Overview
This 96-nucleotide RNA from Drosophila gunungcola belongs to the Rfam family "mir-286 microRNA precursor family". A reference for the family is Li et al. (2009), "Direct sequencing and expression analysis of a large number of miRNAs in Aedes aegypti and a multispecies survey of novel mosquito miRNAs", BMC Genomics. The match comes from Rfam's covariance-model search (102 bits). The base pairs follow the family's consensus structure, which was predicted with RNAalifold.
RNA sequence: UUAAAAUUGAAUGGCGAAUGUCGGUAUGGUCGCUUUUUAAAACGGUUCCGACCAAGCGUAGUGACUAGACCGAACACUCGUGCUAUAAUUUUAAAA
Numbered sequence: 001u002u003a004a005a006a007u008u009g010a011a012u013g014g015c016g017a018a019u020g021u022c023g024g025u026a027u028g029g030u031c032g033c034u035u036u037u038u039a040a041a042a043c044g045g046u047u048c049c050g051a052c053c054a055a056g057c058g059u060a061g062u063g064a065c066u067a068g069a070c071c072g073a074a075c076a077c078u079c080g081u082g083c084u085a086u087a088a089u090u091u092u093a094a095a096a
Base pairs, nucleotide, nucleotide: 011086012085013084014083015082016081019076020075021074022072023071024070027067028066029065030064031063033061034060